[Rfam]
RNA sequence: AGCAGAAUGAUGAGGUUUUUGUAACUGAAUAUGAUGUGGAACUCAUAUCAAAUUGGUCUUCAAAGUUCUCUGAUUGCU
Numbered sequence: 001a002g003c004a005g006a007a008u009g010a011u012g013a014g015g016u017u018u019u020u021g022u023a024a025c026u027g028a029a030u031a032u033g034a035u036g037u038g039g040a041a042c043u044c045a046u047a048u049c050a051a052a053u054u055g056g057u058c059u060u061c062a063a064a065g066u067u068c069u070c071u072g073a074u075u076g077c078u
Stems, first nucleotide, its partner, number of pairs: 001078005
Rfam assigns this 78-nucleotide sequence from Morus notabilis to the family "Small nucleolar RNA R160".
About the family: snoR160 is a C/D box small nucleolar RNA, which acts as a methylation guide for 25S ribosomal RNA in plants. snoR160 has been alternatively named snoZ270 in rice.
The base pairs follow the family's consensus structure.
The organism belongs to Morus, within Eukaryota.
A reference for the family is Chen et al. (2003), "The high diversity of snoRNAs in plants: identification and comparative study of 120 snoRNA genes from Oryza sativa", Nucleic Acids Res.